Background
A member of the RNA family "mir-544 microRNA precursor family" from Chlorocebus sabaeus, 93 nucleotides long. Rfam 15.1 lists 10,750 matches to the family in 132 species. For this family Rfam cites "Mammalian microRNAs: experimental evaluation of novel and previously annotated genes" (Chiang et al., Genes Dev, 2010).

[Rfam]
RNA sequence: AUCACUUAGGGAUCUUGUCAAAAUGCAGAGUUUGAUUUAGUAGGUCCCAGUCCUGAAAUUCUGCUUUUCUAAUAAGCUCCCAAUUGAUGCUGA
Numbered sequence: 001a002u003c004a005c006u007u008a009g010g011g012a013u014c015u016u017g018u019c020a021a022a023a024u025g026c027a028g029a030g031u032u033u034g035a036u037u038u039a040g041u042a043g044g045u046c047c048c049a050g051u052c053c054u055g056a057a058a059u060u061c062u063g064c065u066u067u068u069c070u071a072a073u074a075a076g077c078u079c080c081c082a083a084u085u086g087a088u089g090c091u092g093a
Stems, first nucleotide, its partner, number of pairs: 003086002009080003014076005020070001021068003025064005031058003